[Rfam]
RNA sequence: UGUUGAGUGACGAAAGAAAUCGUUCGGAUUCCAAAUAAUUUAAACUGUGAUAUCCAAACCAGCUACUUCUGACAUUA
Numbered sequence: 001u002g003u004u005g006a007g008u009g010a011c012g013a014a015a016g017a018a019a020u021c022g023u024u025c026g027g028a029u030u031c032c033a034a035a036u037a038a039u040u041u042a043a044a045c046u047g048u049g050a051u052a053u054c055c056a057a058a059c060c061a062g063c064u065a066c067u068u069c070u071g072a073c074a075u076u077a
Stems, first nucleotide, its partner, number of pairs: 001077002004074002
This 77-nucleotide sequence from Kingdonia uniflora belongs to the Rfam family "Small nucleolar RNA R12".
Rfam classes the family as a C/D-box small nucleolar RNA.
The base pairs follow the family's consensus structure, which was predicted with PFOLD.
The source organism's lineage runs through Eukaryota, Viridiplantae, Tracheophyta, Euphyllophyta and Kingdonia.
Rfam describes the family as follows. snoR12 is a C/D box small nucleolar RNA, which acts as a methylation guide for 25S ribosomal RNA in plants. snoR12 has been alternatively named snoZ44 in Arabidopsis and snoZ131 in rice.
The family has 9 seed sequences and 992 matches in Rfam 15.1.
Its family is annotated with RNA processing and nucleolus in the Gene Ontology.